[Rfam]
RNA: Glycine riboswitch aptamer
Organism: Georgenia satyanarayanai
RNA sequence: CGAUUCGCGGCGGGAGAGACCCGCUCAGGCGGGCGCCGAAGGAGCAACCUCCCCGGAAACUCUCAGGCCCCCAUACCGCCACGGCGAG
Numbered sequence: 001c002g003a004u005u006c007g008c009g010g011c012g013g014g015a016g017a018g019a020c021c022c023g024c025u026c027a028g029g030c031g032g033g034c035g036c037c038g039a040a041g042g043a044g045c046a047a048c049c050u051c052c053c054c055g056g057a058a059a060c061u062c063u064c065a066g067g068c069c070c071c072c073a074u075a076c077c078g079c080c081a082c083g084g085c086g087a088g
Base pairs, nucleotide, nucleotide: 006083007082009080010079011078012077013076020033021032022031023030035068036067037066038064039063042062043061044060048056049055